Rfam assigns this 74-nucleotide sequence from Octodon degus to the family "mir-147 microRNA precursor family". The match comes from Rfam's covariance-model search (64 bits). NCBI's taxonomy places the organism under Eukaryota, Amniota, Boreoeutheria, Hystricomorpha, Octodon.

RNA sequence: UAUGAAUCUAGUGGAAACAGGUCUGCACAGACUAGAGUCUGGACACCAGUGUGAGUGCUUCUACUGCAUUUUUA
Numbered sequence: 001u002a003u004g005a006a007u008c009u010a011g012u013g014g015a016a017a018c019a020g021g022u023c024u025g026c027a028c029a030g031a032c033u034a035g036a037g038u039c040u041g042g043a044c045a046c047c048a049g050u051g052u053g054a055g056u057g058c059u060u061c062u063a064c065u066g067c068a069u070u071u072u073u074a
Stems, first nucleotide, its partner, number of pairs: 001074002004071004009066008018057002024055001026053004032049002